RNA: pemK RNA
RNA sequence: AUAAUGAUACUUCUGCUAAGUCACAGUCCGAGCGUUAGAAGCGUCGCAGGCAAUGAUAGCAGCCCGGGCGGAUGUCGGGGAGGUGAGAGUCCUAUGG
Numbered sequence: 001a002u003a004a005u006g007a008u009a010c011u012u013c014u015g016c017u018a019a020g021u022c023a024c025a026g027u028c029c030g031a032g033c034g035u036u037a038g039a040a041g042c043g044u045c046g047c048a049g050g051c052a053a054u055g056a057u058a059g060c061a062g063c064c065c066g067g068g069c070g071g072a073u074g075u076c077g078g079g080g081a082g083g084u085g086a087g088a089g090u091c092c093u094a095u096g097g
Stems, first nucleotide, its partner, number of pairs: 012094001013062006063080003067076003081093003